[Rfam]
A member of the RNA family "Listeria sRNA rli38" from Candidatus Enterococcus dunnyi, 150 nucleotides long.
RNA sequence: UUUGAGUGGGAGUAAAGAGCCAACAUAAUGAGGAUGGGGAAUACGAUAAAUCAAUGUUUUUCAACUUAUGAAAUGUUUGAUUUUCAUUGAAAAUGAUAUGUUUCCCUGCCAACAACCCGUGUCAGGAUAACACUUGACAAGGGUUGUUUU
Numbered sequence: 001u002u003u004g005a006g007u008g009g010g011a012g013u014a015a016a017g018a019g020c021c022a023a024c025a026u027a028a029u030g031a032g033g034a035u036g037g038g039g040a041a042u043a044c045g046a047u048a049a050a051u052c053a054a055u056g057u058u059u060u061u062c063a064a065c066u067u068a069u070g071a072a073a074u075g076u077u078u079g080a081u082u083u084u085c086a087u088u089g090a091a092a093a094u095g096a097u098a099u100g101u102u103u104c105c106c107u108g109c110c111a112a113c114a115a116c117c118c119g120u121g122u123c124a125g126g127a128u129a130a131c132a133c134u135u136g137a138c139a140a141g142g143g144u145u146g147u148u149u150u
Stems, first nucleotide, its partner, number of pairs: 008106005048083007056076002059073005084096004113146006120139007

For this family Rfam cites "The Listeria transcriptional landscape from saprophytism to virulence" (Toledo-Arana et al., Nature, 2009).